[Rfam]
RNA sequence: UAGAACAAGUAGAAGCACCCGCUUCUCACCUGAUUGACGCAUACGCAGUUAGCAGGUAAAUGUCUUUCUUACUUAAGAUUGUACAAGUGUGGGUGUCCGUAUGCCCACACUUUUUUGUUUGG
Number, nucleotide and partner (000 for none) at each position: 001u000002a000003g000004a000005a000006c000007a000008a000009g000010u000011a026012g025013a024014a023015g022016c021017a000018c000019c000020c000021g016022c015023u014024u013025c012026u011027c000028a057029c056030c055031u000032g000033a000034u000035u000036g050037a049038c048039g046040c045041a000042u000043a000044c000045g040046c039047a000048g038049u037050u036051a000052g000053c000054a000055g030056g029057u028058a000059a000060a000061u000062g000063u000064c000065u000066u000067u000068c000069u000070u000071a000072c000073u000074u000075a000076a000077g000078a000079u000080u000081g000082u000083a000084c000085a000086a000087g000088u109089g108090u107091g106092g105093g104094u103095g102096u101097c000098c000099g000100u000101a096102u095103g094104c093105c092106c091107a090108c089109a088110c000111u000112u000113u000114u000115u000116u000117g000118u000119u000120u000121g000122g000

The family of this 122-nucleotide RNA sequence from Bacillus pseudomycoides is "Ribosomal protein L20 leader".
The organism belongs to Bacillus, within Bacteria.
On this family, see Zengel and Lindahl, Prog Nucleic Acid Res Mol Biol 1994: "Diverse mechanisms for regulating ribosomal protein synthesis in Escherichia coli".
From the family's description: This family is a putative r-protein leader autoregulatory structure found in B. subtilis and other low-GC Gram-positive bacteria. It is located in the 5' untranslated regions of mRNAs encoding initiation factor 3 followed by ribosomal proteins L35 and L20 (infC-rpmI-rplT). A Rho-independent transcription terminator structure that is probably involved in regulation is included at the 3' end.